The family of this 84-nucleotide RNA sequence from Rhizobium deserti is "Glycine riboswitch aptamer".
The organism belongs to Rhizobium, within Bacteria.
RNA sequence: GCCGACCCAAUGGGAGAAGCCGCUUCGAUGCGGUGCCGAAGGAGCAACCGCCCCGGAAACUCUCAGGCAAAAGAACCAGCGGGU
Dot-bracket structure: .....(((..(((......((((......)))).(((((..(((...((.....))...))))).))).......)))..))).
Numbered sequence: 001g002c003c004g005a006c007c008c009a010a011u012g013g014g015a016g017a018a019g020c021c022g023c024u025u026c027g028a029u030g031c032g033g034u035g036c037c038g039a040a041g042g043a044g045c046a047a048c049c050g051c052c053c054c055g056g057a058a059a060c061u062c063u064c065a066g067g068c069a070a071a072a073g074a075a076c077c078a079g080c081g082g083g084u
Stems, first nucleotide, its partner, number of pairs: 006083003011078003020033004035068003038064002042062003048056002

Source information:
The match comes from Rfam's covariance-model search (53 bits).